[Rfam]
RNA: Small nucleolar RNA SNORA31
Organism: Motacilla alba
RNA sequence: AUGCAUCUGUUUGACAGACCUGGAGCAAACACUGUUGCUUCUCAGGUUCUCCUUUGGGAUGCAACAGUAACUGGUUCCUUGCGCUUUCUGCCUGUCUGACCCGGUGGCAGUUUGGAUUGAAUAAAGGAACACAAAU
Dot-bracket structure: .(((((((....(..(((((..((((((......))))))....))).)).)....)))))))............(((((...(..((((.(((((.........)))))..))))..)....)))))........
Numbered sequence: 001a002u003g004c005a006u007c008u009g010u011u012u013g014a015c016a017g018a019c020c021u022g023g024a025g026c027a028a029a030c031a032c033u034g035u036u037g038c039u040u041c042u043c044a045g046g047u048u049c050u051c052c053u054u055u056g057g058g059a060u061g062c063a064a065c066a067g068u069a070a071c072u073g074g075u076u077c078c079u080u081g082c083g084c085u086u087u088c089u090g091c092c093u094g095u096c097u098g099a100c101c102c103g104g105u106g107g108c109a110g111u112u113u114g115g116a117u118u119g120a121a122u123a124a125a126g127g128a129a130c131a132c133a134a135a136u
Stems, first nucleotide, its partner, number of pairs: 002063007013052001016050002018047003023040006076128005084119001087116004092110005